[Rfam]
The family of this 85-nucleotide RNA sequence from Sinocyclocheilus rhinocerous is "Small nucleolar RNA SNORD35". Gene Ontology terms of the family: RNA processing and nucleolus. By type it is a C/D-box small nucleolar RNA. The base pairs follow the family's consensus structure, which was predicted with PFOLD. From the family's description: U35 is a C/D box snoRNA located in intron 6 of ribosomal protein L13A and intron 3 of ribosomal protein S11 in humans and at homologous positions in mouse and chicken ribosomal protein genes. U35 guides the methylation of 2'-O-ribose sites in 28S rRNA.
RNA sequence: UGCAAAUGAUGUUUUUUCUCACGAUGGUCUUCCAAGUCUCUCAGGCUCUGACGACACUGCCUUACGGCAUCACUGAUGCAGCAGA
Numbered sequence: 001u002g003c004a005a006a007u008g009a010u011g012u013u014u015u016u017u018c019u020c021a022c023g024a025u026g027g028u029c030u031u032c033c034a035a036g037u038c039u040c041u042c043a044g045g046c047u048c049u050g051a052c053g054a055c056a057c058u059g060c061c062u063u064a065c066g067g068c069a070u071c072a073c074u075g076a077u078g079c080a081g082c083a084g085a
Base pairs, nucleotide, nucleotide: 001080002079003078004077